A member of the RNA family "Streptococcus sRNA 10" from Streptococcus mutans, 111 nucleotides long. It is annotated as a small RNA. The organism belongs to Streptococcus mutans, within Bacteria. The literature on the family includes a 2013 paper in PLoS One by Tesorero et al., "Novel regulatory small RNAs in Streptococcus pyogenes". A search with the family's covariance model found it, with a score of 78 bits.
Nucleotides: 111
Base pairs, nucleotide, nucleotide: 005029007027008026012022013021014020031067032066033065034064035063036062037061038060039059042057043056046053047052078106079105080104081103082102083101084100085099086098087097088096089095
Number, partner (000 for none) and nucleotide at each position: 001000a002000u003000c004000a005029a006000g007027g008026g009000a010000g011000u012022a013021g014020c015000u016000a017000g018000c019000g020014g021013u022012u023000u024000u025000g026008c027007c028000g029005u030000g031067a032066u033065g034064u035063u036062g037061u038060c039059g040000u041000c042057a043056a044000u045000c046053c047052g048000a049000a050000a051000c052047u053046g054000u055000u056043u057042u058000c059039c060038g061037g062036c063035a064034a065033c066032a067031u068000a069000u070000u071000a072000a073000a074000u075000a076000g077000c078106g079105a080104g081103a082102c083101u084100u085099g086098u087097u088096u089095a090000a091000u092000u093000a094000u095089u096088a097087a098086a099085c100084a101083g102082g103081u104080c105079u106078u107000u108000u109000u110000c111000u